RNA sequence: AAAACGGUUCUUUUCAGAACCACCAUAUACUCUCGGAGAAAGAAUGG
Numbered sequence: 001a002a003a004a005c006g007g008u009u010c011u012u013u014u015c016a017g018a019a020c021c022a023c024c025a026u027a028u029a030c031u032c033u034c035g036g037a038g039a040a041a042g043a044a045u046g047g
Base pairs, nucleotide, nucleotide: 006021007020008019009018010017011016
RNA: Histone 3' UTR stem-loop